[Rfam]
RNA sequence: CCAUCUGCUGAAGAAGGGAUGGUUUCCAAGGGGCGUCAGCUCUUUGGCGCCCUUGUAUCCAUGUUGCUUCACAAGGAGGAUAUGGCUAUGAGAA
Numbered sequence: 001c002c003a004u005c006u007g008c009u010g011a012a013g014a015a016g017g018g019a020u021g022g023u024u025u026c027c028a029a030g031g032g033g034c035g036u037c038a039g040c041u042c043u044u045u046g047g048c049g050c051c052c053u054u055g056u057a058u059c060c061a062u063g064u065u066g067c068u069u070c071a072c073a074a075g076g077a078g079g080a081u082a083u084g085g086c087u088a089u090g091a092g093a094a
Stems, first nucleotide, its partner, number of pairs: 001022006008016002030051001033050006052092006059085007067078003
RNA: Repression of heat shock gene expression (ROSE) element